Shown here is a 165-nucleotide RNA sequence from Gossypium raimondii, a member of the family "MIR168 microRNA precursor family". The literature on the family includes a 2002 paper in Genes Dev by Reinhart et al., "MicroRNAs in plants". NCBI's taxonomy places the organism under Eukaryota, Tracheophyta, Spermatophyta, Malvoideae, Gossypium.
RNA sequence: UUACCGGCGGUCUCUAAUUCGCUUGGUGCAGGUCGGGAACUGAUUGGCUGUUCCUUAAUAUUGGAUUGAAUUUUAUUUUGAUUUAAGCCAGAUGGCGGGGCGUGAUUGGAGGAAGCGCGAAUCGGAUCCCGCCUUGCAUCAACUGAAUCGGAGACCGCGGUGAAG
Numbered sequence: 001u002u003a004c005c006g007g008c009g010g011u012c013u014c015u016a017a018u019u020c021g022c023u024u025g026g027u028g029c030a031g032g033u034c035g036g037g038a039a040c041u042g043a044u045u046g047g048c049u050g051u052u053c054c055u056u057a058a059u060a061u062u063g064g065a066u067u068g069a070a071u072u073u074u075a076u077u078u079u080g081a082u083u084u085a086a087g088c089c090a091g092a093u094g095g096c097g098g099g100g101c102g103u104g105a106u107u108g109g110a111g112g113a114a115g116c117g118c119g120a121a122u123c124g125g126a127u128c129c130c131g132c133c134u135u136g137c138a139u140c141a142a143c144u145g146a147a148u149c150g151g152a153g154a155c156c157g158c159g160g161u162g163a164a165g
Base pairs, nucleotide, nucleotide: 013152014151017148018147019146020145023142024141025140026139027138028137029136030135031134032133034131035130036129037128038127040125041124042123043122044121045120
Dot-bracket structure: ............((..((((..((((((((((.(((((.((((((..........................................................................)))))).))))).))))))))))..))))..)).............